A member of the RNA family "chrB-a RNA" from Ruegeria sp. ANG-R, 82 nucleotides long. The organism belongs to Ruegeria, within Bacteria. The family's RNA type in Rfam is cis-regulatory element.
RNA sequence: AACAAGGGGUAGGCUUGCGAACACCCCGUGAGGCGGCAGCCCAAGUUCGCAUGUAUCCAAAGCAACAAGGAAACAUGCUAUG
Numbered sequence: 001a002a003c004a005a006g007g008g009g010u011a012g013g014c015u016u017g018c019g020a021a022c023a024c025c026c027c028g029u030g031a032g033g034c035g036g037c038a039g040c041c042c043a044a045g046u047u048c049g050c051a052u053g054u055a056u057c058c059a060a061a062g063c064a065a066c067a068a069g070g071a072a073a074c075a076u077g078c079u080a081u082g
Stems, first nucleotide, its partner, number of pairs: 006027005049078006